The record is a 75-nucleotide RNA sequence from Spirilliplanes yamanashiensis, which matches "6C RNA" in Rfam.
[Rfam]
RNA sequence: GCGAAUCCGGCUCGACCCCCCCGGAGCCGGAUUCACAGACGACCCCCGUCAUCCCCCCGACGGGGGUCGUCCCCC
Numbered sequence: 001g002c003g004a005a006u007c008c009g010g011c012u013c014g015a016c017c018c019c020c021c022c023g024g025a026g027c028c029g030g031a032u033u034c035a036c037a038g039a040c041g042a043c044c045c046c047c048g049u050c051a052u053c054c055c056c057c058c059g060a061c062g063g064g065g066g067u068c069g070u071c072c073c074c075c
Stems, first nucleotide, its partner, number of pairs: 003034011038071013
Gene Ontology term of the family: sporulation. A search with the family's covariance model found it, with a score of 64 bits.